[Rfam]
RNA: MIR319 microRNA precursor family
Organism: Prunus persica
RNA sequence: CAGAAAUGGGUGCUCCUUGCAGCCCAAAACAGAACAGCGUGGCUAUGAGAUGAUGAGAUGCACUUGCUCUAUGUUUUGGACUGAAGGGAGCUCCCAGUUCUU
Numbered sequence: 001c002a003g004a005a006a007u008g009g010g011u012g013c014u015c016c017u018u019g020c021a022g023c024c025c026a027a028a029a030c031a032g033a034a035c036a037g038c039g040u041g042g043c044u045a046u047g048a049g050a051u052g053a054u055g056a057g058a059u060g061c062a063c064u065u066g067c068u069c070u071a072u073g074u075u076u077u078g079g080a081c082u083g084a085a086g087g088g089a090g091c092u093c094c095c096a097g098u099u100c101u102u
Base pairs, nucleotide, nucleotide: 007096008095009094010093012091013090014089015088016087017086018085021082022081024079025078026077027076028075029074030073031072